[Rfam]
RNA sequence: GUUCCCUAUGAUGAUUUUUAUAUAAUGCUAAUGUAUAUCUGAUAAAUUUUUUUGAUGAUAAAAUGAUUUGCUGAGGGAACU
Numbered sequence: 001g002u003u004c005c006c007u008a009u010g011a012u013g014a015u016u017u018u019u020a021u022a023u024a025a026u027g028c029u030a031a032u033g034u035a036u037a038u039c040u041g042a043u044a045a046a047u048u049u050u051u052u053u054g055a056u057g058a059u060a061a062a063a064u065g066a067u068u069u070g071c072u073g074a075g076g077g078a079a080c081u
Stems, first nucleotide, its partner, number of pairs: 001080007
Dot-bracket structure: (((((((..................................................................))))))).
RNA: Small nucleolar RNA snoR53Y